[Rfam]
RNA sequence: AUGAUAGUUGUGAGAGAGUGCAAAAUGUUUUUACGCCACCGAAGGAGCAAGUUCCAAAAAAAGACCCUUGGAAACGAAUCUCUCAGGUAGAUGGAACACAACUGGACG
Numbered sequence: 001a002u003g004a005u006a007g008u009u010g011u012g013a014g015a016g017a018g019u020g021c022a023a024a025a026u027g028u029u030u031u032u033a034c035g036c037c038a039c040c041g042a043a044g045g046a047g048c049a050a051g052u053u054c055c056a057a058a059a060a061a062a063g064a065c066c067c068u069u070g071g072a073a074a075c076g077a078a079u080c081u082c083u084c085a086g087g088u089a090g091a092u093g094g095a096a097c098a099c100a101a102c103u104g105g106a107c108g
Base pairs, nucleotide, nucleotide: 006103007102008101009100010099011098012097020036021035038088039087040086041084042083045082046081047080051075052074
RNA: Glycine riboswitch aptamer
Organism: Metabacillus sediminilitoris